[Rfam]
RNA sequence: AUGAUGACCGGGGGAGAGACCGCCUUAGGCGGCGCCGAAGGAGCAAACAGGCGAGAAACUCUCAGGCAAAAGGACCCUGGUUUGACA
Numbered sequence: 001a002u003g004a005u006g007a008c009c010g011g012g013g014g015a016g017a018g019a020c021c022g023c024c025u026u027a028g029g030c031g032g033c034g035c036c037g038a039a040g041g042a043g044c045a046a047a048c049a050g051g052c053g054a055g056a057a058a059c060u061c062u063c064a065g066g067c068a069a070a071a072g073g074a075c076c077c078u079g080g081u082u083u084g085a086c087a
Base pairs, nucleotide, nucleotide: 006082007081008080009079010078011077012076013075020032021031022030023029034067035066036065037063038062041061042060043059048053

A member of the RNA family "Glycine riboswitch aptamer" from Thermosinus carboxydivorans, 87 nucleotides long.